Description:
This 80-nucleotide sequence from Monodelphis domestica belongs to the Rfam family "mir-203 microRNA precursor family". Taxonomically the source falls in Monodelphis (Eukaryota, Eumetazoa, Gnathostomata, Sarcopterygii). Rfam 15.1 lists 1,049 matches to the family in 464 species. Rfam links the family to the GO terms RISC complex and miRNA-mediated post-transcriptional gene silencing. The sequence is in the family's curated seed alignment. Pairs were carried over by alignment from the consensus structure, which was predicted with RNAalifold.
RNA sequence: GCUGCCCUGGUCCAGUGGUUCUUAACAGUUCAACAGUUCUGUGUAGAGAUUGUGAAAUGUUUAGGACCACUUGAUCUGGG
Numbered sequence: 001g002c003u004g005c006c007c008u009g010g011u012c013c014a015g016u017g018g019u020u021c022u023u024a025a026c027a028g029u030u031c032a033a034c035a036g037u038u039c040u041g042u043g044u045a046g047a048g049a050u051u052g053u054g055a056a057a058u059g060u061u062u063a064g065g066a067c068c069a070c071u072u073g074a075u076c077u078g079g080g
Stems, first nucleotide, its partner, number of pairs: 014071006021064002024061004029056004